[Rfam]
A member of the RNA family "Mammalian CPEB3 ribozyme" from Alligator mississippiensis, 75 nucleotides long. Gene Ontology term of the family: RNA nuclease activity. Lineage of the source: Eukaryota > Opisthokonta > Amniota > Sauria > Alligator.

RNA sequence: AUUGCAAGUUUGAGGCCAUAGCAGAAGCACUUAUGGUAUGGCCUGUCAGAUACCAAUGAACCUGUAAAUUCUGAU
Number, nucleotide and partner (000 for none) at each position: 001a000002u000003u000004g000005c000006a000007a000008g000009u000010u000011u000012g000013a000014g043015g042016c041017c040018a000019u000020a075021g000022c073023a072024g071025a070026a069027g039028c000029a037030c000031u000032u000033a000034u000035g000036g000037u029038a000039u027040g017041g016042c015043c014044u000045g000046u000047c064048a063049g062050a000051u060052a000053c058054c000055a000056a000057u000058g053059a000060a051061c000062c049063u048064g047065u000066a000067a000068a000069u026070u025071c024072u023073g022074a000075u020